RNA sequence: GCCGAGCUUUGUAACGAAAUCUUGUCACCUGAGUGGGGGCAUUAAGAUGAUGGGACAUUUGUUCGUCUCUUCGAGAUGGAUCCCGUGUGGCUUUUCCAUGGCUUGCCCGUUCCAAGCCAGGAGUUGUGCUAUGGGACCUCAGUGAAACUGUUAGUGUCAUGGCUCCUAGAGUGAGGCGGGGCACUGCGUGAGGCUGGUUUCACAGAGCAGCGAAGACCUUCCUCUCUUGGCAGUGGGAGGAUUACAGGCUUGAUCCACUAAAUAUCCAAAUGUCUCACUGAGCCGACCAUGACUGUACCAUCAUCUUU
Numbered sequence: 001g002c003c004g005a006g007c008u009u010u011g012u013a014a015c016g017a018a019a020u021c022u023u024g025u026c027a028c029c030u031g032a033g034u035g036g037g038g039g040c041a042u043u044a045a046g047a048u049g050a051u052g053g054g055a056c057a058u059u060u061g062u063u064c065g066u067c068u069c070u071u072c073g074a075g076a077u078g079g080a081u082c083c084c085g086u087g088u089g090g091c092u093u094u095u096c097c098a099u100g101g102c103u104u105g106c107c108c109g110u111u112c113c114a115a116g117c118c119a120g121g122a123g124u125u126g127u128g129c130u131a132u133g134g135g136a137c138c139u140c141a142g143u144g145a146a147a148c149u150g151u152u153a154g155u156g157u158c159a160u161g162g163c164u165c166c167u168a169g170a171g172u173g174a175g176g177c178g179g180g181g182c183a184c185u186g187c188g189u190g191a192g193g194c195u196g197g198u199u200u201c202a203c204a205g206a207g208c209a210g211c212g213a214a215g216a217c218c219u220u221c222c223u224c225u226c227u228u229g230g231c232a233g234u235g236g237g238a239g240g241a242u243u244a245c246a247g248g249c250u251u252g253a254u255c256c257a258c259u260a261a262a263u264a265u266c267c268a269a270a271u272g273u274c275u276c277a278c279u280g281a282g283c284c285g286a287c288c289a290u291g292a293c294u295g296u297a298c299c300a301u302c303a304u305c306u307u308u
Base pairs, nucleotide, nucleotide: 001040002039003038004023005022006021008019009018010017028037029036030035044307045306046305047304048303049302050301051300052299053298055296056295057294058292059291061287062286063285065283066282068281069280073276074275075274076273077272078267079266080265081264085259087258088257089256090255093253100250101249102248103247104246105245107240108239110238111237112236113235114234116231117230118229119228120227121226122225123224126165128163129162130161131160132159133158134157136155137154140150141149142148143147166171175222176221178219179218180217185214187212188211189210194205195204196203